[Rfam]
RNA sequence: CGCUCGACUGCGGGAGAGAUCGGGCUUUGCCCGGCGCCGAAGGAGCAACCGCCCCGGAAACUCUCAGGCAAAAGGACCGCGUCAGGCUG
Numbered sequence: 001c002g003c004u005c006g007a008c009u010g011c012g013g014g015a016g017a018g019a020u021c022g023g024g025c026u027u028u029g030c031c032c033g034g035c036g037c038c039g040a041a042g043g044a045g046c047a048a049c050c051g052c053c054c055c056g057g058a059a060a061c062u063c064u065c066a067g068g069c070a071a072a073a074g075g076a077c078c079g080c081g082u083c084a085g086g087c088u089g
Stems, first nucleotide, its partner, number of pairs: 009081005020034004036069003039065002043063003049057002
RNA: Glycine riboswitch aptamer